[Rfam]
RNA sequence: GAGGAAAAGAAGAAGCACCCGCUUCUCACCUGGCUGACGCAAAGAGCAGUUGGCAGGUUUUACUGAAACAGCUUUUAACUUGUCGUUUCGUAAGUGUGGGUGAUUUCAUCCGCACUUUUUUAUAUGU
Numbered sequence: 001g002a003g004g005a006a007a008a009g010a011a012g013a014a015g016c017a018c019c020c021g022c023u024u025c026u027c028a029c030c031u032g033g034c035u036g037a038c039g040c041a042a043a044g045a046g047c048a049g050u051u052g053g054c055a056g057g058u059u060u061u062a063c064u065g066a067a068a069c070a071g072c073u074u075u076u077a078a079c080u081u082g083u084c085g086u087u088u089c090g091u092a093a094g095u096g097u098g099g100g101u102g103a104u105u106u107c108a109u110c111c112g113c114a115c116u117u118u119u120u121u122a123u124a125u126g127u
Stems, first nucleotide, its partner, number of pairs: 011026006028058003036051003039047002095114008
A member of the RNA family "Ribosomal protein L20 leader" from Bacillus sp. NRRL B-14911, 127 nucleotides long.
Rfam describes the family as follows. This family is a putative r-protein leader autoregulatory structure found in B. subtilis and other low-GC Gram-positive bacteria. It is located in the 5' untranslated regions of mRNAs encoding initiation factor 3 followed by ribosomal proteins L35 and L20 (infC-rpmI-rplT). A Rho-independent transcription terminator structure that is probably involved in regulation is included at the 3' end.
The base pairs follow the family's consensus structure, which was predicted with CMfinder.
The family's RNA type in Rfam is cis-regulatory leader.
The sequence is in the family's curated seed alignment.
NCBI's taxonomy places the organism under Bacteria, Bacillati, Bacilli, Caryophanales, Bacillus.